[Rfam]
RNA sequence: UAAGCGAGCGUCUAGGGUUCCGCCGGCCAUGCCGGGUCUGGUCCAAGAGACGCUACCCGCUCACUGCGGGGAACACGGAGGGAGAAAAGCCCGGGAGGC
Numbered sequence: 001u002a003a004g005c006g007a008g009c010g011u012c013u014a015g016g017g018u019u020c021c022g023c024c025g026g027c028c029a030u031g032c033c034g035g036g037u038c039u040g041g042u043c044c045a046a047g048a049g050a051c052g053c054u055a056c057c058c059g060c061u062c063a064c065u066g067c068g069g070g071g072a073a074c075a076c077g078g079a080g081g082g083a084g085a086a087a088a089g090c091c092c093g094g095g096a097g098g099c
Stems, first nucleotide, its partner, number of pairs: 007054006015044002020041002022038001023035005056071003074094001076097001080092003
Guanidine-I riboswitch aptamer: a 99-nucleotide RNA from Candidatus Hydrogenisulfobacillus filiaventi. It scores 82 bits against the family's covariance model. Gene Ontology term of the family: regulation of gene expression. Rfam describes the family as follows. This family represents a conserved RNA structure found upstream of the ykkC and yxkD genes in Bacillus subtilis and related genes in other bacteria. Pairs were carried over by alignment from the consensus structure. A reference for the family is Reiss et al. (2017), "Structural Basis for Ligand Binding to the Guanidine-I Riboswitch", Structure.